[Rfam]
RNA: Bacterial small subunit ribosomal RNA, nucleotides 544 to 858
RNA sequence: GGUUUAAAGGGUAUGUAGACGGUAAAUUAAACUCUAAAAGAGUACUUUUUUACUAGAGUUAUAUAUGAGAAGGAAGAAUUUCUGGAGUAGAGAUAAAAUUUUUUGAUACCAGGAGGACUGUCAACGGCGAAGGCGUCCUUCUAUGUAAUAACUGACGUUGAGAGACGAAGGCUUGGGUAGCAAACAGGAUUAGAUACCCUAGUAGUCCAAGCAGACAAUGAUGAAUGUCAUACAUUAGAGAAGAUUUAAUGUAUAAACGAAAGUGUAAGCAUUCCACCUCAAGAGUACUAUGGCAACAUAUAAACUGAAAUCAUU
Numbered sequence: 001g002g003u004u005u006a007a008a009g010g011g012u013a014u015g016u017a018g019a020c021g022g023u024a025a026a027u028u029a030a031a032c033u034c035u036a037a038a039a040g041a042g043u044a045c046u047u048u049u050u051u052a053c054u055a056g057a058g059u060u061a062u063a064u065a066u067g068a069g070a071a072g073g074a075a076g077a078a079u080u081u082c083u084g085g086a087g088u089a090g091a092g093a094u095a096a097a098a099u100u101u102u103u104u105g106a107u108a109c110c111a112g113g114a115g116g117a118c119u120g121u122c123a124a125c126g127g128c129g130a131a132g133g134c135g136u137c138c139u140u141c142u143a144u145g146u147a148a149u150a151a152c153u154g155a156c157g158u159u160g161a162g163a164g165a166c167g168a169a170g171g172c173u174u175g176g177g178u179a180g181c182a183a184a185c186a187g188g189a190u191u192a193g194a195u196a197c198c199c200u201a202g203u204a205g206u207c208c209a210a211g212c213a214g215a216c217a218a219u220g221a222u223g224a225a226u227g228u229c230a231u232a233c234a235u236u237a238g239a240g241a242a243g244a245u246u247u248a249a250u251g252u253a254u255a256a257a258c259g260a261a262a263g264u265g266u267a268a269g270c271a272u273u274c275c276a277c278c279u280c281a282a283g284a285g286u287a288c289u290a291u292g293g294c295a296a297c298a299u300a301u302a303a304a305c306u307g308a309a310a311u312c313a314u315u
Stems, first nucleotide, its partner, number of pairs: 001278003009275001011166002014163001016160001018159003022053005030046001032042004057153003062147004068142007075119002079115007090101003127134002171212006180206002186200003223274006231253009257264002280307002289300004